[Rfam]
RNA sequence: CUCCUCCUUUGGUGUUUCAUGUGUUGGCAGAUUCCGACCGCGCAGGCGGAACGGAUUUGAACCCCGAACUUCUCUCCCCAUCGAAGUUCGGGUUUUUUUUGCCUGCUU
Numbered sequence: 001c002u003c004c005u006c007c008u009u010u011g012g013u014g015u016u017u018c019a020u021g022u023g024u025u026g027g028c029a030g031a032u033u034c035c036g037a038c039c040g041c042g043c044a045g046g047c048g049g050a051a052c053g054g055a056u057u058u059g060a061a062c063c064c065c066g067a068a069c070u071u072c073u074c075u076c077c078c079c080a081u082c083g084a085a086g087u088u089c090g091g092g093u094u095u096u097u098u099u100u101g102c103c104u105g106c107u108u
Base pairs, nucleotide, nucleotide: 033055034054035053036052059096060095061094063092064091065090066089067088068087069086070085071084072083
Dot-bracket structure: ................................((((...............))))...(((.((((((((((..........)))))))))).)))............
Annotation: This 108-nucleotide RNA from Pseudomonas pohangensis belongs to the Rfam family "Pseudomon-1/ErsA RNA". The source organism's lineage runs through Bacteria, Pseudomonadati, Pseudomonadota, Pseudomonadales and Pseudomonas. Rfam's curators write: Functions to regulate the AlgC enzyme. The literature on the family includes a 2015 paper in Environ Microbiol by Ferrara et al., "Post-transcriptional regulation of the virulence-associated enzyme AlgC by the sigma(22) -dependent small RNA ErsA of Pseudomonas aeruginosa". It is annotated as a small RNA. Gene Ontology terms of the family: response to antibiotic, positive regulation of translation, ncRNA-mediated and sRNA-mediated gene silencing.